[Rfam]
RNA sequence: CUAGCUGCUGAUUGUCCAAACGCAAUUCUUGUGACAUUUCAAACCCAAACCCGAGAGUUGUGCCUGGACAUCUGUUGCUGG
Dot-bracket structure: .((((.(..(((.(((((..(((((((((((....................)))))))))))..))))))))..).)))).
Numbered sequence: 001c002u003a004g005c006u007g008c009u010g011a012u013u014g015u016c017c018a019a020a021c022g023c024a025a026u027u028c029u030u031g032u033g034a035c036a037u038u039u040c041a042a043a044c045c046c047a048a049a050c051c052c053g054a055g056a057g058u059u060g061u062g063c064c065u066g067g068a069c070a071u072c073u074g075u076u077g078c079u080g081g
Stems, first nucleotide, its partner, number of pairs: 002080004007075001010072003014069005021062011